[Rfam]
RNA sequence: AGUGCUUACACGCGAGCGUUGAGCACCAUAUUGGUGCAAAUUGUGAUUAGGUGCCCUUUUUAUGCUCCGUGAAAGCGAUCACAAAGAAACUCUGCGAUACUUGUUUGC
Numbered sequence: 001a002g003u004g005c006u007u008a009c010a011c012g013c014g015a016g017c018g019u020u021g022a023g024c025a026c027c028a029u030a031u032u033g034g035u036g037c038a039a040a041u042u043g044u045g046a047u048u049a050g051g052u053g054c055c056c057u058u059u060u061u062a063u064g065c066u067c068c069g070u071g072a073a074a075g076c077g078a079u080c081a082c083a084a085a086g087a088a089a090c091u092c093u094g095c096g097a098u099a100c101u102u103g104u105u106u107g108c
Stems, first nucleotide, its partner, number of pairs: 002026006010019003027103002031099001035096004043090001044087001047084002050080003057075008
RNA: ES222 sRNA
Organism: Kluyvera genomosp. 3